[Rfam]
A member of the RNA family "Small nucleolar RNA Z279/snoR105/snoR108" from Lactuca saligna, 106 nucleotides long. This family includes the plant snoRNAs known as Z279, snoR105 and snoR108. It scores 75 bits against the family's covariance model.
RNA sequence: GGGAGGUGAUGAGUGGUCAUUACUCGCAUUUAAGUUUGCGAGAUGGGGUGUCUGCUUAAGGCUUUACGACAAUUAGGCACCUCAAAUCUUAUAACCAUCUGAUCCU
Numbered sequence: 001g002g003g004a005g006g007u008g009a010u011g012a013g014u015g016g017u018c019a020u021u022a023c024u025c026g027c028a029u030u031u032a033a034g035u036u037u038g039c040g041a042g043a044u045g046g047g048g049u050g051u052c053u054g055c056u057u058a059a060g061g062c063u064u065u066a067c068g069a070c071a072a073u074u075a076g077g078c079a080c081c082u083c084a085a086a087u088c089u090u091a092u093a094a095c096c097a098u099c100u101g102a103u104c105c106u
Stems, first nucleotide, its partner, number of pairs: 001106004014097004023042005044084008063076001064072001

Rfam 15.1 lists 906 matches to the family in 223 species. Lineage of the source: Eukaryota > Streptophytina > Mesangiospermae > Cichorieae > Lactuca. The family's RNA type in Rfam is C/D-box small nucleolar RNA. The family is grouped with related families in Rfam's "snoU13 clan". The literature on the family includes a 2002 paper in Curr Biol by Marker et al., "Experimental RNomics: identification of 140 candidates for small non-messenger RNAs in the plant Arabidopsis thaliana".